The family of this 72-nucleotide sequence from Cryptotermes secundus is "tRNA".
The source organism's lineage runs through Eukaryota, Bilateria, Dicondylia, Termitoidae and Cryptotermes.
A search with the family's covariance model found it, with a score of 59 bits.

RNA sequence: GGCUCAGUGGUCUAGGGGUAUGAUUCCUGCUUUGGGUGCAGGAGGUCCCGGGUUCAAAUCCCGGCUGAGCCC
Numbered sequence: 001g002g003c004u005c006a007g008u009g010g011u012c013u014a015g016g017g018g019u020a021u022g023a024u025u026c027c028u029g030c031u032u033u034g035g036g037u038g039c040a041g042g043a044g045g046u047c048c049c050g051g052g053u054u055c056a057a058a059u060c061c062c063g064g065c066u067g068a069g070c071c072c
Stems, first nucleotide, its partner, number of pairs: 001071007010024003026042005048064005